This 82-nucleotide RNA from Xenopus tropicalis belongs to the Rfam family "mir-128 microRNA precursor family". Rfam 15.1 lists 1,337 matches to the family in 643 species. Rfam links the family to the GO terms RISC complex and miRNA-mediated post-transcriptional gene silencing. NCBI's taxonomy places the organism under Eukaryota, Anura, Xenopodinae, Xenopus, Silurana. The literature on the family includes a 2005 paper in Genes Dev by Chen et al., "The developmental miRNA profiles of zebrafish as determined by small RNA cloning".

RNA sequence: GAGCGGCUGGAACCGGGCCCGGAGCGCUGUCUGAGAGGGUUUAAGUUUCUCACAGUGAACCGGUCUCUUUUUCAGUCUCUUC
Numbered sequence: 001g002a003g004c005g006g007c008u009g010g011a012a013c014c015g016g017g018c019c020c021g022g023a024g025c026g027c028u029g030u031c032u033g034a035g036a037g038g039g040u041u042u043a044a045g046u047u048u049c050u051c052a053c054a055g056u057g058a059a060c061c062g063g064u065c066u067c068u069u070u071u072u073c074a075g076u077c078u079c080u081u082c
Base pairs, nucleotide, nucleotide: 006076007075008074009073010072015067016066017065019063020062021061025057026056027055028054029053030052033051034050035049